[Rfam]
RNA sequence: AGAGGGAGGCCGGAUCCUGGGCUGUGUCCCUGGCGCCCUGUGCAUCCGGCCUGCACUGUUGGGUUCGUGCUCCCAGCGUUGCAGCCCCCU
Numbered sequence: 001a002g003a004g005g006g007a008g009g010c011c012g013g014a015u016c017c018u019g020g021g022c023u024g025u026g027u028c029c030c031u032g033g034c035g036c037c038c039u040g041u042g043c044a045u046c047c048g049g050c051c052u053g054c055a056c057u058g059u060u061g062g063g064u065u066c067g068u069g070c071u072c073c074c075a076g077c078g079u080u081g082c083a084g085c086c087c088c089c090u
Stems, first nucleotide, its partner, number of pairs: 001090002004087003009082002013077001016076001019073003023069004027063002030061001031058003035054002040051001042050002
mir-8799 microRNA precursor family: a 90-nucleotide RNA from Vulpes vulpes. Gene Ontology terms of the family: RISC complex and miRNA-mediated post-transcriptional gene silencing.